Shown here is a 442-nucleotide part of an RNA from Candidatus Undinarchaeum marinum, a member of the family "Archaeal large subunit ribosomal RNA". Its Rfam clan is "LSU clan". The family's consensus secondary structure is taken from published work. Taxonomically the source falls in Candidatus Undinarchaeum (Archaea, Nanobdellati, Candidatus Undinarchaeota, Candidatus Undinarchaeaceae).
RNA sequence: CCUUCCGAAAUGUACCGUAGUACAGCCUGGCUAUAGAGUCGUGCGGGGGUAGAGUUACUGAUUGGGGAGCCCGGGAUGGAAACAUCUCACUUCCCUGUCAAACUCCGAAUACCGCAUGCUUGUAUGGCUGGAGUGAGGGCUUACGGGUAAGCCGUAGGUCCGAGAGGGAAACAACCCAGACCAGAGUUAAGGCCCCUAAAUGCUAGUUAAGUGUAAAUGAAGGCGUCUCUUUCCCAAAACAGCGGGGAGGUUAGCUUAGAAGCAGCAAUCCUCUAAUGAGUGCGUAACAGCUCACCCGCCUAGGAAAGGGGCACUGUAAAUGGACGGGGCUCAAACUAGCUGCCGAUACUUUGGUGCCUCACUAUGUGAGGUAGGUAGGAAGGUAUUCUGCGAGGGUAGAAGCAUCUGUGUAAGCAGGCGUGGACCACGCAGAAAAAAGAAU
Numbered sequence: 001c002c003u004u005c006c007g008a009a010a011u012g013u014a015c016c017g018u019a020g021u022a023c024a025g026c027c028u029g030g031c032u033a034u035a036g037a038g039u040c041g042u043g044c045g046g047g048g049g050u051a052g053a054g055u056u057a058c059u060g061a062u063u064g065g066g067g068a069g070c071c072c073g074g075g076a077u078g079g080a081a082a083c084a085u086c087u088c089a090c091u092u093c094c095c096u097g098u099c100a101a102a103c104u105c106c107g108a109a110u111a112c113c114g115c116a117u118g119c120u121u122g123u124a125u126g127g128c129u130g131g132a133g134u135g136a137g138g139g140c141u142u143a144c145g146g147g148u149a150a151g152c153c154g155u156a157g158g159u160c161c162g163a164g165a166g167g168g169a170a171a172c173a174a175c176c177c178a179g180a181c182c183a184g185a186g187u188u189a190a191g192g193c194c195c196c197u198a199a200a201u202g203c204u205a206g207u208u209a210a211g212u213g214u215a216a217a218u219g220a221a222g223g224c225g226u227c228u229c230u231u232u233c234c235c236a237a238a239a240c241a242g243c244g245g246g247g248a249g250g251u252u253a254g255c256u257u258a259g260a261a262g263c264a265g266c267a268a269u270c271c272u273c274u275a276a277u278g279a280g281u282g283c284g285u286a287a288c289a290g291c292u293c294a295c296c297c298g299c300c301u302a303g304g305a306a307a308g309g310g311g312c313a314c315u316g317u318a319a320a321u322g323g324a325c326g327g328g329g330c331u332c333a334a335a336c337u338a339g340c341u342g343c344c345g346a347u348a349c350u351u352u353g354g355u356g357c358c359u360c361a362c363u364a365u366g367u368g369a370g371g372u373a374g375g376u377a378g379g380a381a382g383g384u385a386u387u388c389u390g391c392g393a394g395g396g397u398a399g400a401a402g403c404a405u406c407u408g409u410g411u412a413a414g415c416a417g418g419c420g421u422g423g424a425c426c427a428c429g430c431a432g433a434a435a436a437a438a439g440a441a442u
Stems, first nucleotide, its partner, number of pairs: 001383006011024005026133001027131006036121003040118007052106001053104002060099003064095006073088006137161009166177003181354007191344003200341001202340006221315002225312010242299005248272003254266002278293001282291002355373007384437001386434007394426002402421002405418005